The record is a 233-nucleotide sequence from Micromonospora sp. MH33, which matches "Actinobacteria sRNA Ms_IGR-5" in Rfam. The literature on the family includes a 2013 paper in RNA by Li et al., "Identification of small RNAs in Mycobacterium smegmatis using heterologous Hfq". By type it is a small RNA. A search with the family's covariance model found it, with a score of 92 bits. The source organism's lineage runs through Bacteria, Bacillati, Actinomycetes, Micromonosporales and Micromonospora.
[Rfam]
RNA sequence: ACACGGGAAAGGAGGUGGUCCAGACUUGUAUAGCAAUCGGACUCGUGAGGUGGCUGUCCGCUAGCCGCUGUCCUCGACAGUGAAAUCCGUCCGCCGCGAGGCGGGCACCUGCAUGAUCGUCGAGACCGUGUGGCAGCGGUGCGGCGAAACCACGACAGCCACCCGACCCCCGGGGUGCCGGCCCAGUCCAGCCGGCCCGCGCGCGAGCGCGGAAGCCCCGGGGGUCGCUUCAU
Numbered sequence: 001a002c003a004c005g006g007g008a009a010a011g012g013a014g015g016u017g018g019u020c021c022a023g024a025c026u027u028g029u030a031u032a033g034c035a036a037u038c039g040g041a042c043u044c045g046u047g048a049g050g051u052g053g054c055u056g057u058c059c060g061c062u063a064g065c066c067g068c069u070g071u072c073c074u075c076g077a078c079a080g081u082g083a084a085a086u087c088c089g090u091c092c093g094c095c096g097c098g099a100g101g102c103g104g105g106c107a108c109c110u111g112c113a114u115g116a117u118c119g120u121c122g123a124g125a126c127c128g129u130g131u132g133g134c135a136g137c138g139g140u141g142c143g144g145c146g147a148a149a150c151c152a153c154g155a156c157a158g159c160c161a162c163c164c165g166a167c168c169c170c171c172g173g174g175g176u177g178c179c180g181g182c183c184c185a186g187u188c189c190a191g192c193c194g195g196c197c198c199g200c201g202c203g204c205g206a207g208c209g210c211g212g213a214a215g216c217c218c219c220g221g222g223g224g225u226c227g228c229u230u231c232a233u
Stems, first nucleotide, its partner, number of pairs: 014058006059146004064142002067137004072132001164227013177196006